RNA: SAM riboswitch aptamer (S box leader)
RNA sequence: CACUUAUCCAGAGAGACCGAGGGAUCAGGCCCUUUGACGUCCGGCAACCUCCUUUUAUGAGGAACGGUGCCACUUCCUGCAGAAUGUAUUUAUUCUGAGAGAUAAGUC
Dot-bracket structure: .(((((((....(.(((...(((..[[[[)))......))))((((.((((((......))))..))))))...(]]]]((((((......))))))..)))))))).
Numbered sequence: 001c002a003c004u005u006a007u008c009c010a011g012a013g014a015g016a017c018c019g020a021g022g023g024a025u026c027a028g029g030c031c032c033u034u035u036g037a038c039g040u041c042c043g044g045c046a047a048c049c050u051c052c053u054u055u056u057a058u059g060a061g062g063a064a065c066g067g068u069g070c071c072a073c074u075u076c077c078u079g080c081a082g083a084a085u086g087u088a089u090u091u092a093u094u095c096u097g098a099g100a101g102a103u104a105a106g107u108c
Stems, first nucleotide, its partner, number of pairs: 002107007013042001015041003021032003026079004043071004048067002050063004075100001080097006